[Rfam]
RNA sequence: CAAGUAUUUCGCCUUAUCGCUAUUUGGAGCAAUCCAGAUGGAGGAAAGUCCGGACACCAUAGUGUAACAAAGUGGUUAACAGCCACCAGUCGUGAGGCUAGGAAAAGUGCAACAGAAAGUAUGUACAGGUAAUGCUGUAGUGAAACCAGGUAAACUCUUUGUGGUGCAAUGUCAUGUAAACUAAUGUUUGAGCGUACACGCGCGAUGUUAGAGGGUAGGCAGCUAAAGUGUAUUGGUAACAAUACACGUAGAUAAAUGAUAAGGGUACCGAUGUAUCGGGAUACAAAAUCCGGCUUAUAGAUUUACUUAAUCA
Numbered sequence: 001c002a003a004g005u006a007u008u009u010c011g012c013c014u015u016a017u018c019g020c021u022a023u024u025u026g027g028a029g030c031a032a033u034c035c036a037g038a039u040g041g042a043g044g045a046a047a048g049u050c051c052g053g054a055c056a057c058c059a060u061a062g063u064g065u066a067a068c069a070a071a072g073u074g075g076u077u078a079a080c081a082g083c084c085a086c087c088a089g090u091c092g093u094g095a096g097g098c099u100a101g102g103a104a105a106a107g108u109g110c111a112a113c114a115g116a117a118a119g120u121a122u123g124u125a126c127a128g129g130u131a132a133u134g135c136u137g138u139a140g141u142g143a144a145a146c147c148a149g150g151u152a153a154a155c156u157c158u159u160u161g162u163g164g165u166g167c168a169a170u171g172u173c174a175u176g177u178a179a180a181c182u183a184a185u186g187u188u189u190g191a192g193c194g195u196a197c198a199c200g201c202g203c204g205a206u207g208u209u210a211g212a213g214g215g216u217a218g219g220c221a222g223c224u225a226a227a228g229u230g231u232a233u234u235g236g237u238a239a240c241a242a243u244a245c246a247c248g249u250a251g252a253u254a255a256a257u258g259a260u261a262a263g264g265g266u267a268c269c270g271a272u273g274u275a276u277c278g279g280g281a282u283a284c285a286a287a288a289u290c291c292g293g294c295u296u297a298u299a300g301a302u303u304u305a306c307u308u309a310a311u312c313a
Base pairs, nucleotide, nucleotide: 002308003307004306005305006304009301010300011298012264013263014262015261016260017259018258020041021040022039023038024037025036026035027034028033046296047295048294050293051292052291053290054289055166056165057164058163062199063198064197065196067162068161069160070159071158072086073085074084075083076082087101088099089098090097091096102157103156107155108154109151110150124139125138126137127136128135170221171220172219173218181211182210183209184208185207192203193202194201195200228247229246230245231244232243233242234241235240

The record is a 313-nucleotide RNA from Lacinutrix sp. WUR7, which matches "Bacterial RNase P class A" in Rfam. Pairs were carried over by alignment from the consensus structure, which is taken from published work. It is annotated as a ribozyme.